[Rfam]
RNA sequence: CUGCAACACUGUGGCAGAUGAUUGAAACUGUCUGACACAAUUUGAGCUUGCUAUAGCAUGAGUCUAACCUAUUCCAGCGCUCUCUCCUCUAUGAGACAAGCCGUUAUAUAGACUUAAACAGU
Numbered sequence: 001c002u003g004c005a006a007c008a009c010u011g012u013g014g015c016a017g018a019u020g021a022u023u024g025a026a027a028c029u030g031u032c033u034g035a036c037a038c039a040a041u042u043u044g045a046g047c048u049u050g051c052u053a054u055a056g057c058a059u060g061a062g063u064c065u066a067a068c069c070u071a072u073u074c075c076a077g078c079g080c081u082c083u084c085u086c087c088u089c090u091a092u093g094a095g096a097c098a099a100g101c102c103g104u105u106a107u108a109u110a111g112a113c114u115u116a117a118a119c120a121g122u
Stems, first nucleotide, its partner, number of pairs: 009044001010039004015034006060115007070108003075103001077101002083096004